Description: The record is a 141-nucleotide RNA from Lachnospiraceae bacterium M18-1, which matches "Group II catalytic intron D1-D4-7" in Rfam. The base pairs follow the family's consensus structure. Taxonomically the source falls in Lachnospiraceae (Bacteria, Bacillati, Bacillota, Clostridia). A search with the family's covariance model found it, with a score of 84 bits. The family has 244 seed sequences and 1,296 matches in Rfam 15.1. A reference for the family is Bonen and Vogel (2001), "The ins and outs of group II introns", Trends Genet.

[Rfam]
RNA sequence: CCAUCCAUUCCGUUGGAUGAAGCCGUUGUCCCCGGCUCUGCCAGUAAUGGCACUGUUCGGAAGCGGACAUAAACGUAACCCUAUUUGGAAUCCAAACCGUGAGGGGAGGAUGAAGCUGCGAGCUGCAAUGCGGUUAGGGUG
Numbered sequence: 001c002c003a004u005c006c007a008u009u010c011c012g013u014u015g016g017a018u019g020a021a022g023c024c025g026u027u028g029u030c031c032c033c034g035g036c037u038c039u040g041c042c043a044g045u046a047a048u049g050g051c052a053c054u055g056u057u058c059g060g061a062a063g064c065g066g067a068c069a070u071a072a073a074c075g076u077a078a079c080c081c082u083a084u085u086u087g088g089a090a091u092c093c094a095a096a097c098c099g100u101g102a103g104g105g106g107a108g109g110a111u112g113a114a115g116c117u118g119c120g121a122g123c124u125g126c127a128a129u130g131c132g133g134u135u136a137g138g139g140u141g
Base pairs, nucleotide, nucleotide: 002019003018004017005016006015007014027069028068029067030066031065032060033059034058035056036055039052040051041050042049043048081088082087090111091110092109093108097104098103115134116133117132118131119130120129